Shown here is a 78-nucleotide RNA sequence from Medicago truncatula, a member of the family "MIR5269 microRNA precursor family". Lineage of the source: Eukaryota > Tracheophyta > Mesangiospermae > eudicotyledons > Medicago. The family has 2 seed sequences and 389 matches in Rfam 15.1. Pairs were carried over by alignment from the consensus structure, which was predicted with RNAalifold.

RNA sequence: UUGGGUUAAAUCAAUGUGUCCUACAAUUCGGAAAUGGAACCCACAUAAAGUGGUGGAACAUACAUUGAUUUCAACCAA
Numbered sequence: 001u002u003g004g005g006u007u008a009a010a011u012c013a014a015u016g017u018g019u020c021c022u023a024c025a026a027u028u029c030g031g032a033a034a035u036g037g038a039a040c041c042c043a044c045a046u047a048a049a050g051u052g053g054u055g056g057a058a059c060a061u062a063c064a065u066u067g068a069u070u071u072c073a074a075c076c077a078a
Stems, first nucleotide, its partner, number of pairs: 001078004006073001008071011021056003024052002027049002030046001
Dot-bracket structure: ((((.(.(((((((((((..(((((.((.(...............).)).)).)))....))))))))))).).))))